RNA sequence: AGGGGUUCCACAGGAGCGACCUGGGAUCACAUGUGUGCACCCUCACACUAACACAAUGUGCUGCAUUGCCAGUGUAUUGUGCUUGAUGUGUUCUCAGGUCGCCCCUGCAGUGCCUUC
Numbered sequence: 001a002g003g004g005g006u007u008c009c010a011c012a013g014g015a016g017c018g019a020c021c022u023g024g025g026a027u028c029a030c031a032u033g034u035g036u037g038c039a040c041c042c043u044c045a046c047a048c049u050a051a052c053a054c055a056a057u058g059u060g061c062u063g064c065a066u067u068g069c070c071a072g073u074g075u076a077u078u079g080u081g082c083u084u085g086a087u088g089u090g091u092u093c094u095c096a097g098g099u100c101g102c103c104c105c106u107g108c109a110g111u112g113c114c115u116u117c
Base pairs, nucleotide, nucleotide: 008110011107012106013105014104016102017101018100019099023095024094025093026092028090029089030088031087032086
RNA: MIR398 microRNA precursor family
Organism: Prunus armeniaca